The family of this 128-nucleotide RNA from Trogon melanurus is "Small Cajal body specific RNA 4".
About the family: scaRNAs are a specific class of small nuclear RNAs which localise to the Cajal bodies and guide the modification of RNA polymerase II transcribed spliceosomal RNAs U1, U2, U4, U5 and U12.
It is annotated as a small Cajal body RNA.

RNA sequence: ACUGGAGGACUAAUCGGACUGAGUCUGAAGAGUGAGACUCGGGUGAGAGAAGCCUCCUAACAGAAAAGGGAUGGCGAGAGCGGUCCUACUUCCAGAAAAGCAACGGCUGACUGUGCCAUCCGACACGU
Numbered sequence: 001a002c003u004g005g006a007g008g009a010c011u012a013a014u015c016g017g018a019c020u021g022a023g024u025c026u027g028a029a030g031a032g033u034g035a036g037a038c039u040c041g042g043g044u045g046a047g048a049g050a051a052g053c054c055u056c057c058u059a060a061c062a063g064a065a066a067a068g069g070g071a072u073g074g075c076g077a078g079a080g081c082g083g084u085c086c087u088a089c090u091u092c093c094a095g096a097a098a099a100g101c102a103a104c105g106g107c108u109g110a111c112u113g114u115g116c117c118a119u120c121c122g123a124c125a126c127g128u
Stems, first nucleotide, its partner, number of pairs: 003059001004057005017044001019042001021040006068121003079112002081109005091102001093100001